[Rfam]
RNA sequence: AAUACUACAUACUCCGAACUUUGGCUGCCUAAAGCAAUGGUCACGGUGCCAGAGUCGACGGGUUCAGGUGGAAACACCUGGGCCCCCCGGUAUGGAAAGGAGGGUUUUAAUACAUAAA
Numbered sequence: 001a002a003u004a005c006u007a008c009a010u011a012c013u014c015c016g017a018a019c020u021u022u023g024g025c026u027g028c029c030u031a032a033a034g035c036a037a038u039g040g041u042c043a044c045g046g047u048g049c050c051a052g053a054g055u056c057g058a059c060g061g062g063u064u065c066a067g068g069u070g071g072a073a074a075c076a077c078c079u080g081g082g083c084c085c086c087c088c089g090g091u092a093u094g095g096a097a098a099g100g101a102g103g104g105u106u107u108u109a110a111u112a113c114a115u116a117a118a
Stems, first nucleotide, its partner, number of pairs: 003112002006109001010104001012102004018055008027047003034041002060085011086095002
Dot-bracket structure: ..((.(...(.((((..((((((((.(((....((....))...)))))))))))....(((((((((((....)))))))))))((......))...)))).)....).))......
A member of the RNA family "Molybdenum/Tungsten riboswitch aptamer (Moco RNA motif)" from Sporotomaculum syntrophicum, 118 nucleotides long. It scores 66 bits against the family's covariance model. Taxonomically the source falls in Sporotomaculum (Bacteria, Bacillati, Eubacteriales, Desulfallaceae). The literature on the family includes a 2008 paper in Mol Microbiol by Regulski et al., "in molybdenum cofactor and tungsten cofactor metabolism".